[Rfam]
This 105-nucleotide RNA sequence belongs to the Rfam family "RT-5 RNA".
RNA sequence: UUGCGCCUGCGGCGGACCCGGCGCGGACUUUUCCAUGGCUUCGCAGGCAGCCUGUUCGCGUACGGCCCUGUACGUCCAGGAAUUAUCCUGGCUUUAAUGAUUUCU
Numbered sequence: 001u002u003g004c005g006c007c008u009g010c011g012g013c014g015g016a017c018c019c020g021g022c023g024c025g026g027a028c029u030u031u032u033c034c035a036u037g038g039c040u041u042c043g044c045a046g047g048c049a050g051c052c053u054g055u056u057c058g059c060g061u062a063c064g065g066c067c068c069u070g071u072a073c074g075u076c077c078a079g080g081a082a083u084u085a086u087c088c089u090g091g092c093u094u095u096a097a098u099g100a101u102u103u104c105u
Stems, first nucleotide, its partner, number of pairs: 005048007014068002017065002021061008037052004076091006